[Rfam]
RNA sequence: GGUUUUAACCCUAAAGUAAUGCAUGGGAUAUAUAUAUAUAUAUAUAUAUAUAUAUCCCAUGCAUUACUUUAGUGUUAAAACC
Numbered sequence: 001g002g003u004u005u006u007a008a009c010c011c012u013a014a015a016g017u018a019a020u021g022c023a024u025g026g027g028a029u030a031u032a033u034a035u036a037u038a039u040a041u042a043u044a045u046a047u048a049u050a051u052a053u054a055u056c057c058c059a060u061g062c063a064u065u066a067c068u069u070u071a072g073u074g075u076u077a078a079a080a081c082c
Stems, first nucleotide, its partner, number of pairs: 001081001003079003007075001011072012024059005031054004037046002
The family of this 82-nucleotide RNA from Nezara viridula is "mir-2763 microRNA precursor family".
The family's consensus secondary structure was predicted with RNAalifold.
It scores 54 bits against the family's covariance model.